[Rfam]
RNA sequence: AUGCAUUACUGUAAAGCAUGGUUCCUCAUAUUUUGUAUAUGGUACCUUAAGCAGCAAUGCAGAAAAUGAUGUCAUUCAAUUGGCAGCGGCCAGACAACCGUGGUGAUGGAUCCACAGAUAGCAGGCAUUUAAGUUCUGCUUGUCUACUGAUUCCAUCACAUAUGU
Numbered sequence: 001a002u003g004c005a006u007u008a009c010u011g012u013a014a015a016g017c018a019u020g021g022u023u024c025c026u027c028a029u030a031u032u033u034u035g036u037a038u039a040u041g042g043u044a045c046c047u048u049a050a051g052c053a054g055c056a057a058u059g060c061a062g063a064a065a066a067u068g069a070u071g072u073c074a075u076u077c078a079a080u081u082g083g084c085a086g087c088g089g090c091c092a093g094a095c096a097a098c099c100g101u102g103g104u105g106a107u108g109g110a111u112c113c114a115c116a117g118a119u120a121g122c123a124g125g126c127a128u129u130u131a132a133g134u135u136c137u138g139c140u141u142g143u144c145u146a147c148u149g150a151u152u153c154c155a156u157c158a159c160a161u162a163u164g165u
Stems, first nucleotide, its partner, number of pairs: 002061005010053003015048002018043002021040002103159008120140006
RNA: small nucleolar RNA snoR143
Organism: Vanilla planifolia